[Rfam]
RNA sequence: GACAGAGUAGGUUUAGGCGCGUAAAGUGCUGGAUAGACGGGAAGUUGCUAUCCAGACGAAAAACUUCUUAAAGUUUGCGAUGCCUUUACCGCAUUCCGCUGUC
Numbered sequence: 001g002a003c004a005g006a007g008u009a010g011g012u013u014u015a016g017g018c019g020c021g022u023a024a025a026g027u028g029c030u031g032g033a034u035a036g037a038c039g040g041g042a043a044g045u046u047g048c049u050a051u052c053c054a055g056a057c058g059a060a061a062a063a064c065u066u067c068u069u070a071a072a073g074u075u076u077g078c079g080a081u082g083c084c085u086u087u088a089c090c091g092c093a094u095u096c097c098g099c100u101g102u103c
Stems, first nucleotide, its partner, number of pairs: 001103005010090003015085005020079003026057002029055008040096003044092001061076004